RNA sequence: CUCUUAUCGAGAGCGGCGGAGGGACUGGCCCAAUGAAGCCCGGCAACCCCCAGAUGACUAUUGUCUGGUUGGUGCUAAUUCCUGAAAGACCAUGUCUUUCAAGAUGAGAG
Numbered sequence: 001c002u003c004u005u006a007u008c009g010a011g012a013g014c015g016g017c018g019g020a021g022g023g024a025c026u027g028g029c030c031c032a033a034u035g036a037a038g039c040c041c042g043g044c045a046a047c048c049c050c051c052a053g054a055u056g057a058c059u060a061u062u063g064u065c066u067g068g069u070u071g072g073u074g075c076u077a078a079u080u081c082c083u084g085a086a087a088g089a090c091c092a093u094g095u096c097u098u099u100c101a102a103g104a105u106g107a108g109a110g
Stems, first nucleotide, its partner, number of pairs: 001110008013041001015040003021031003025084001027082002042076004047072002050068006080102001085099006

The record is a 110-nucleotide RNA sequence from Sulfobacillus thermosulfidooxidans, which matches "SAM riboswitch aptamer (S box leader)" in Rfam.
It scores 86 bits against the family's covariance model.